[Rfam]
A member of the RNA family "Small nucleolar RNA snoR109" from Morella rubra, 105 nucleotides long. For this family Rfam cites "Experimental RNomics: identification of 140 candidates for small non-messenger RNAs in the plant Arabidopsis thaliana" (Marker et al., Curr Biol, 2002).
RNA sequence: CGGCUGUAGCCAAAUCGAACGGCUCCGAGAAGUUUACUGGCCGGUUGUUGUGAGAUCUUUGUUCGAUCUCCGUCGACUAUUCUGCUUACCGAACUUCUCAUAUUC
Dot-bracket structure: ..........................((((((((....(((.((.(((((.......................)))).).)).))).....))))))))......

The family has 6 seed sequences and 680 matches in Rfam 15.1.
It scores 77 bits against the family's covariance model.
Its family is annotated with nucleolus and RNA processing in the Gene Ontology.